[Rfam]
RNA sequence: CAAUGGAGCCUUUCAGGCAUCCUCUCCCAAACUUCAUACCCGGCUGGUUCGCCAGCCGGGUUUUUUCUUGCCUGCA
Numbered sequence: 001c002a003a004u005g006g007a008g009c010c011u012u013u014c015a016g017g018c019a020u021c022c023u024c025u026c027c028c029a030a031a032c033u034u035c036a037u038a039c040c041c042g043g044c045u046g047g048u049u050c051g052c053c054a055g056c057c058g059g060g061u062u063u064u065u066u067c068u069u070g071c072c073u074g075c076a
Stems, first nucleotide, its partner, number of pairs: 008018004038061009

Background:
Shown here is a 76-nucleotide RNA sequence from Citromicrobium sp. RCC1897, a member of the family "Makes More Granules Regulator RNA (mmgR)". The family's RNA type in Rfam is small RNA. Its Rfam clan is "suhB sRNA clan". Rfam's curators write: SuhB later renamed mmgR (makes more granules regulator) was a putative non-coding RNA found multiple times in the Agrobacterium tumefaciens genome and related alpha-proteobacteria. Pairs were carried over by alignment from the consensus structure.